RNA sequence: ACUCUUGUUUCUCUUCAGAUCGUAUAAAUCUUUCGCCUUUUACUAAAGAUUUCCGUGGAGAGGAACAACAAGAGAUUUACUCAAUUUUUUGAUGCCUUGCUUCACAGCGAGGCU
Number, nucleotide and partner (000 for none) at each position: 001a000002c000003u075004c074005u073006u072007g066008u065009u064010u063011c062012u061013c060014u059015u058016c057017a056018g000019a000020u000021c000022g000023u000024a000025u000026a052027a051028a050029u049030c048031u047032u046033u045034c000035g000036c000037c000038u000039u000040u000041u000042a000043c000044u000045a033046a032047a031048g030049a029050u028051u027052u026053c000054c000055g000056u017057g016058g015059a014060g013061a012062g011063g010064a009065a008066c007067a000068a000069c000070a000071a000072g006073a005074g004075a003076u000077u000078u000079a000080c000081u000082c000083a000084a000085u000086u000087u000088u000089u000090u000091g000092a114093u000094g113095c112096c111097u110098u109099g108100c000101u000102u000103c000104a000105c000106a000107g000108c099109g098110a097111g096112g095113c094114u092